[Rfam]
RNA sequence: CCCCCCCUUUUCACUUUGCCAGUUGGACAACUUUCAUGUCCUCUUUGGUCAUUCAAGGGGGGUAUAACAAACAUCCUUUUAAAACCCAAGCAAAUUCCUUUUUAAUUUAGCUUGGAUCCUGUCAAAGGAGACACGA
Number, nucleotide and partner (000 for none) at each position: 001c000002c000003c000004c000005c000006c000007c000008u000009u000010u000011u000012c000013a000014c000015u000016u000017u000018g000019c000020c000021a000022g000023u000024u000025g000026g000027a000028c000029a000030a000031c000032u000033u000034u000035c000036a000037u064038g063039u062040c061041c060042u000043c000044u000045u056046u055047g054048g053049u000050c000051a000052u000053u048054c047055a046056a045057g000058g000059g000060g041061g040062g039063u038064a037065u000066a000067a000068c000069a000070a000071a000072c000073a000074u129075c128076c127077u126078u125079u124080u000081a000082a000083a000084a000085c000086c000087c114088a112089a000090g000091c000092a108093a107094a106095u105096u000097c000098c000099u000100u000101u000102u000103u000104a000105a095106u094107u093108u092109a000110g000111c000112u088113u000114g087115g000116a000117u000118c000119c000120u000121g000122u000123c000124a079125a078126a077127g076128g075129a074130g000131a000132c000133a000134c000135g000136a000